[Rfam]
RNA sequence: UCGGCUCCGGUUCACGUCCCGCAUCCGCGCGCGGACGACCCGGCGCA
Numbered sequence: 001u002c003g004g005c006u007c008c009g010g011u012u013c014a015c016g017u018c019c020c021g022c023a024u025c026c027g028c029g030c031g032c033g034g035a036c037g038a039c040c041c042g043g044c045g046c047a
Stems, first nucleotide, its partner, number of pairs: 004046002007043004015037005020031003
Dot-bracket structure: ...((.((((....((((((((......))).)))))..)))).)).

A member of the RNA family "L31-Actinobacteria ribosomal protein leader" from Nocardioides gansuensis, 47 nucleotides long. For this family Rfam cites "Discovery of 20 novel ribosomal leader candidates in bacteria and archaea" (Eckert and Weinberg, BMC Microbiol, 2020). Taxonomically the source falls in Nocardioides (Bacteria, Bacillati, Propionibacteriales, Nocardioidaceae). It scores 46 bits against the family's covariance model.